Shown here is a 383-nucleotide RNA from bacterium HR40, a member of the family "Bacterial RNase P class A". The match comes from Rfam's covariance-model search (283 bits). The family's consensus secondary structure is taken from published work.
RNA sequence: ACGGGUGGCCGGAUGGCCGCUCCCGCGUGAAGCGGGGGAGGAAAGUCCGGGCUCCACGGAAACACGGUGCCGGGUAACACCCGGCGGGGGCAACCCCAGGGAAAGUGCCACAGAGAGCAGACCGCCCGCCGGGGCCUUCGGGCCUGCGGGCAAGGGUGAAAGGGUGCGGUAAGAGCGCACCGCGCCCCCGGCAACGGGGGCGGCACGGCAAACCCCACCGGGAGCAAGACCAGAUAGGGGCGGGAGCGCUUCGGCGCAGGCCAGUUUCCGGGCCGACCGCCCGGGUGGGUCGCGUGAGGCGCGCGGUGACGCGCGUCCCAGAGGAAUGGCCAUCACCGGGAGCGAUCCCGGUACAGAACCCGGCUUACAGGCCACCCGUCCGC
Numbered sequence: 001a002c003g004g005g006u007g008g009c010c011g012g013a014u015g016g017c018c019g020c021u022c023c024c025g026c027g028u029g030a031a032g033c034g035g036g037g038g039a040g041g042a043a044a045g046u047c048c049g050g051g052c053u054c055c056a057c058g059g060a061a062a063c064a065c066g067g068u069g070c071c072g073g074g075u076a077a078c079a080c081c082c083g084g085c086g087g088g089g090g091c092a093a094c095c096c097c098a099g100g101g102a103a104a105g106u107g108c109c110a111c112a113g114a115g116a117g118c119a120g121a122c123c124g125c126c127c128g129c130c131g132g133g134g135c136c137u138u139c140g141g142g143c144c145u146g147c148g149g150g151c152a153a154g155g156g157u158g159a160a161a162g163g164g165u166g167c168g169g170u171a172a173g174a175g176c177g178c179a180c181c182g183c184g185c186c187c188c189c190g191g192c193a194a195c196g197g198g199g200g201c202g203g204c205a206c207g208g209c210a211a212a213c214c215c216c217a218c219c220g221g222g223a224g225c226a227a228g229a230c231c232a233g234a235u236a237g238g239g240g241c242g243g244g245a246g247c248g249c250u251u252c253g254g255c256g257c258a259g260g261c262c263a264g265u266u267u268c269c270g271g272g273c274c275g276a277c278c279g280c281c282c283g284g285g286u287g288g289g290u291c292g293c294g295u296g297a298g299g300c301g302c303g304c305g306g307u308g309a310c311g312c313g314c315g316u317c318c319c320a321g322a323g324g325a326a327u328g329g330c331c332a333u334c335a336c337c338g339g340g341a342g343c344g345a346u347c348c349c350g351g352u353a354c355a356g357a358a359c360c361c362g363g364c365u366u367a368c369a370g371g372c373c374a375c376c377c378g379u380c381c382g383c
Stems, first nucleotide, its partner, number of pairs: 001379010011368001012334007020038007043366003047363005052224004061267002065220005070084005085099001086097004100215002105213002107209003122155002124151006131144002163181006182204001183202008228291004238282006259274004298317008